Small nucleolar RNA SNORA31: a 132-nucleotide RNA sequence from Rousettus aegyptiacus. ACA31 (SNORA31) belongs to the H/ACA class of snoRNAs which are thought to guide the sites of modification of uridines to pseudouridines. ACA31 is predicted to guide the pseudouridylation of U3713 in 28S rRNA and U218 in 18S rRNA. This family includes the mouse homologue snoMBI-161. Rfam classes the family as an H/ACA-box small nucleolar RNA. Pairs were carried over by alignment from the consensus structure, which was predicted with RNAalifold. A search with the family's covariance model found it, with a score of 89 bits.
Nucleotides: 132
Base pairs, nucleotide, nucleotide: 004060005059006058007057008056014050015049016048018046019045022040023039024038025037026036027035076124078122084115087112088111089110090109092106093105094104095103096102
Number, partner (000 for none) and nucleotide at each position: 001000c002000a003000g004060c005059a006058u007057c008056c009000a010000u011000g012000a013000a014050u015049a016048g017000a018046c019045c020000u021000u022040g023039a024038g025037c026036a027035a028000a029000u030000u031000g032000c033000u034000a035027u036026u037025g038024u039023u040022c041000u042000u043000u044000u045019g046018g047000a048016u049015u050014g051000g052000a053000u054000u055000a056008g057007g058006a059005u060004g061000a062000g063000a064000a065000a066000g067000g068000a069000a070000a071000a072000a073000a074000a075000a076124u077000c078122c079000c080000u081000g082000u083000g084115c085000u086000u087112u088111c089110u090109g091000u092106c093105u094104g095103u096102c097000u098000u099000u100000g101000u102096g103095g104094c105093g106092g107000c108000c109090c110089a111088g112087a113000u114000u115084g116000a117000a118000u119000a120000c121000u122078g123000a124076a125000a126000u127000a128000c129000a130000u131000c132000u